[Rfam]
Rfam assigns this 82-nucleotide sequence to the family "Bacteroides-1 RNA". It is annotated as a small RNA. The sequence is in the family's curated seed alignment.
Nucleotides: 082
Base pairs, nucleotide, nucleotide: 018051019050020049024045025044026043027042029040030039031038032037055071056070057069058068059067060066
Number, partner (000 for none) and nucleotide at each position: 001000g002000u003000g004000c005000a006000a007000a008000u009000c010000g011000g012000c013000c014000u015000g016000a017000a018051g019050c020049c021000a022000u023000u024045u025044a026043u027042g028000u029040a030039u031038a032037u033000g034000u035000g036000a037032a038031u039030a040029u041000c042027c043026a044025u045024a046000c047000u048000c049020g050019g051018u052000a053000c054000a055071u056070a057069u058068g059067c060066c061000u062000c063000c064000c065000c066060g067059g068058c069057a070056u071055a072000g073000a074000c075000a076000g077000g078000u079000a080000a081000g082000a